[Rfam]
RNA sequence: GGACUGUGAUGAUUAAUUAGUGAAAGGUCUCGUUCGUCGUAAUUGGCUAUCUAUUUAGCCUUGCCGACCAUACUGAUAUAUCACCACCCAUAACCUGAGUCC
Numbered sequence: 001g002g003a004c005u006g007u008g009a010u011g012a013u014u015a016a017u018u019a020g021u022g023a024a025a026g027g028u029c030u031c032g033u034u035c036g037u038c039g040u041a042a043u044u045g046g047c048u049a050u051c052u053a054u055u056u057a058g059c060c061u062u063g064c065c066g067a068c069c070a071u072a073c074u075g076a077u078a079u080a081u082c083a084c085c086a087c088c089c090a091u092a093a094c095c096u097g098a099g100u101c102c
Stems, first nucleotide, its partner, number of pairs: 001102004049061001050057001
RNA: Small nucleolar RNA Z43